This 129-nucleotide RNA sequence from Carnegiea gigantea belongs to the Rfam family "U11 spliceosomal RNA".
Clan: U1 clan.
The match comes from Rfam's covariance-model search (80 bits).
RNA sequence: UAAAAGGGUCGGUUGGCUAAAUAUGCCACGCCCUUCCUAAGAAUGGAGGGUGCUGUAUGGCUAUCAAGACAUAUGGCCGACAUAAUUUCUGGAACUUCGUAGGGUUGGCUCUUUAGGCCGGCCCUUCAA
Numbered sequence: 001u002a003a004a005a006g007g008g009u010c011g012g013u014u015g016g017c018u019a020a021a022u023a024u025g026c027c028a029c030g031c032c033c034u035u036c037c038u039a040a041g042a043a044u045g046g047a048g049g050g051u052g053c054u055g056u057a058u059g060g061c062u063a064u065c066a067a068g069a070c071a072u073a074u075g076g077c078c079g080a081c082a083u084a085a086u087u088u089c090u091g092g093a094a095c096u097u098c099g100u101a102g103g104g105u106u107g108g109c110u111c112u113u114u115a116g117g118c119c120g121g122c123c124c125u126u127c128a129a
Stems, first nucleotide, its partner, number of pairs: 008081005014028004029052008038043001053076007099127001101125010
Lineage of the source: Eukaryota > Embryophyta > Mesangiospermae > Echinocereeae > Carnegiea.
The family's RNA type in Rfam is spliceosomal small nuclear RNA.
Its family is annotated with U11 snRNP, mRNA 5'-splice site recognition and pre-mRNA 5'-splice site binding in the Gene Ontology.